This 46-nucleotide sequence from Bubo bubo belongs to the Rfam family "Histone 3' UTR stem-loop". By type it is a cis-regulatory element. The base pairs follow the family's consensus structure, which is taken from published work.
[Rfam]
RNA sequence: CCAAAGGCUCUUUUCAGAGCCACCCAACUUUUCAAUAGAAGAGCUG
Numbered sequence: 001c002c003a004a005a006g007g008c009u010c011u012u013u014u015c016a017g018a019g020c021c022a023c024c025c026a027a028c029u030u031u032u033c034a035a036u037a038g039a040a041g042a043g044c045u046g
Stems, first nucleotide, its partner, number of pairs: 006021006
Gene Ontology term of the family: mRNA 3'-end processing by stem-loop binding and cleavage. Rfam's curators write: The mRNAs of metazoan histone genes lack a poly-A tail. 3' end processing occurs at a site between a highly conserved stem-loop (modelled by this family) and a purine rich region around 20 nts downstream (the histone downstream element, or HDE). The stem-loop is bound by a 31 kDa stem-loop binding protein (SLBP - also termed the histone hairpin binding protein, or HBP). Together with U7 snRNA binding of the HDE, SLBP binding nucleate s the formation of the processing complex. On this family, see DeJong et al., RNA 2002: "NMR structure and dynamics of the RNA-binding site for the histone mRNA stem-loop binding protein". It scores 42 bits against the family's covariance model.